[Rfam]
Rfam assigns this 64-nucleotide RNA from Myotis brandtii to the family "mir-9242 microRNA precursor family". The match comes from Rfam's covariance-model search (63 bits). The family has 2 seed sequences and 940 matches in Rfam 15.1. Its family is annotated with RISC complex and miRNA-mediated post-transcriptional gene silencing in the Gene Ontology.

RNA sequence: AGCCUCCCUCUUUGGGGAGAUCGAUCGUGGAGCCCCCACAUUGAUCUCCCUGAAGAGGGUGGCC
Numbered sequence: 001a002g003c004c005u006c007c008c009u010c011u012u013u014g015g016g017g018a019g020a021u022c023g024a025u026c027g028u029g030g031a032g033c034c035c036c037c038a039c040a041u042u043g044a045u046c047u048c049c050c051u052g053a054a055g056a057g058g059g060u061g062g063c064c
Base pairs, nucleotide, nucleotide: 002063003062004061006059007058008057009056010055011054012053013052014051015050016049017048018047019046020045021044022043023042024041025040029036030035